[Rfam]
RNA sequence: CUUCUCACUACAUCCUCGCGACUAAUGACAAUCCUUAAUCCUCUCGGCGGGAUUAAAGUCUCUCAUUAGCCGCGCGAACCUCUGUAACGGAAGAUCUCGCGAAACGUACUCUUUAAAACUCUACUUUUUUAUAAAGCUUCAUUUAUAGAAAAGUAGCGUAGAAACAACAGAUUUGGCAAUAGCUAGAUUGACUCUUGCUGCCUAGAAUAAAGGGGCCACUUGGCCCCUUUAC
Numbered sequence: 001c002u003u004c005u006c007a008c009u010a011c012a013u014c015c016u017c018g019c020g021a022c023u024a025a026u027g028a029c030a031a032u033c034c035u036u037a038a039u040c041c042u043c044u045c046g047g048c049g050g051g052a053u054u055a056a057a058g059u060c061u062c063u064c065a066u067u068a069g070c071c072g073c074g075c076g077a078a079c080c081u082c083u084g085u086a087a088c089g090g091a092a093g094a095u096c097u098c099g100c101g102a103a104a105c106g107u108a109c110u111c112u113u114u115a116a117a118a119c120u121c122u123a124c125u126u127u128u129u130u131a132u133a134a135a136g137c138u139u140c141a142u143u144u145a146u147a148g149a150a151a152a153g154u155a156g157c158g159u160a161g162a163a164a165c166a167a168c169a170g171a172u173u174u175g176g177c178a179a180u181a182g183c184u185a186g187a188u189u190g191a192c193u194c195u196u197g198c199u200g201c202c203u204a205g206a207a208u209a210a211a212g213g214g215g216c217c218a219c220u221u222g223g224c225c226c227c228u229u230u231a232c
Stems, first nucleotide, its partner, number of pairs: 001093004006089001010085003017076004022069007100186001212227006